[Rfam]
The family of this 117-nucleotide RNA sequence from Pontibacterium sinense is "RtT RNA".
The family has 57 seed sequences and 651 matches in Rfam 15.1.
The source organism's lineage runs through Bacteria, Pseudomonadota, Gammaproteobacteria, Oceanospirillaceae and Pontibacterium.
From the family's description: This family represents a bacterial cis-regulatory element known as RtT RNA. The exact function of RtT is unknown although it is thought that it may be involved in changing the cellular response in relation to amino acid starvation.
A search with the family's covariance model found it, with a score of 55 bits.
Pairs were carried over by alignment from the consensus structure, which is taken from published work.
On this family, see Bosl and Kersten, Nucleic Acids Res 1991: "A novel RNA product of the tyrT operon of Escherichia coli".
Nucleotides: 117
Base pairs, nucleotide, nucleotide: 016107017106018105019104020103021102022100032090037088038087039086040084044054045053061080062079063078
Number, partner (000 for none) and nucleotide at each position: 001000c002000u003000g004000c005000g006000g007000u008000a009000u010000u011000u012000g013000a014000a015000u016107g017106g018105a019104g020103g021102g022100u023000g024000a025000g026000a027000a028000c029000c030000c031000u032090c033000g034000c035000g036000g037088u038087u039086c040084g041000a042000g043000u044054c045053g046000a047000g048000c049000g050000a051000a052000g053045c054044g055000a056000g057000a058000c059000a060000a061080c062079a063078g064000u065000g066000g067000a068000g069000c070000u071000u072000g073000c074000g075000a076000g077000g078063c079062u080061g081000g082000c083000c084040c085000u086039g087038a088037a089000g090032g091000g092000g093000c094000g095000a096000a097000g098000u099000a100022a101000u102021c103020c104019c105018u106017c107016c108000c109000u110000c111000a112000c113000c114000g115000c116000c117000a